[Rfam]
RNA sequence: UCCGCCGAGGGGCGCUGCGACCGUGUGCAAGGCACGGCCAGGCUCGGCGGGAACAGGAUUCCAACGGCGCCCGGUCACU
Numbered sequence: 001u002c003c004g005c006c007g008a009g010g011g012g013c014g015c016u017g018c019g020a021c022c023g024u025g026u027g028c029a030a031g032g033c034a035c036g037g038c039c040a041g042g043c044u045c046g047g048c049g050g051g052a053a054c055a056g057g058a059u060u061c062c063a064a065c066g067g068c069g070c071c072c073g074g075u076c077a078c079u
Stems, first nucleotide, its partner, number of pairs: 002050007021037006
This 79-nucleotide RNA from Luteimonas sp. JM171 belongs to the Rfam family "SAH (S-adenosyl-L-homocysteine) riboswitch aptamer". Rfam links the family to the GO terms regulation of gene expression and S-adenosylhomocysteine metabolic process. A search with the family's covariance model found it, with a score of 67 bits. A reference for the family is Wang et al. (2008), "Riboswitches that sense S-adenosylhomocysteine and activate genes involved in coenzyme recycling", Mol Cell.